[Rfam]
RNA sequence: UGUCGAAGCUCCAUCCACAAAUGGAUAAGACUUCGGUCUUAGUGUAUACGAGUUCGGAUUUUUGAGAAUGAAGGAGCAAUAGCAACCCUUUUCAUAAAAAGGGGAAUUGGUUGUUGCUCC
Numbered sequence: 001u002g003u004c005g006a007a008g009c010u011c012c013a014u015c016c017a018c019a020a021a022u023g024g025a026u027a028a029g030a031c032u033u034c035g036g037u038c039u040u041a042g043u044g045u046a047u048a049c050g051a052g053u054u055c056g057g058a059u060u061u062u063u064g065a066g067a068a069u070g071a072a073g074g075a076g077c078a079a080u081a082g083c084a085a086c087c088c089u090u091u092u093c094a095u096a097a098a099a100a101g102g103g104g105a106a107u108u109g110g111u112u113g114u115u116g117c118u119c120c
Base pairs, nucleotide, nucleotide: 010025011024012023013022014021073120074119075118076117077116078115079114080113081112082111085108089104090103091102092101

Notes: This 120-nucleotide RNA from Euonymus japonicus belongs to the Rfam family "Plastid-psbA-1 3UTR RNA". Rfam's curators put it in the seed alignment. Plastid psbA-1 is a non-coding RNA (ncRNA) present in plastids. It was identified in inverted repeat sequences in the 3 prime untranslate region (3UTR) of photosystem II quinone-binding protein (psbA). It is annotated as a cis-regulatory element. The organism belongs to Euonymus, within Eukaryota.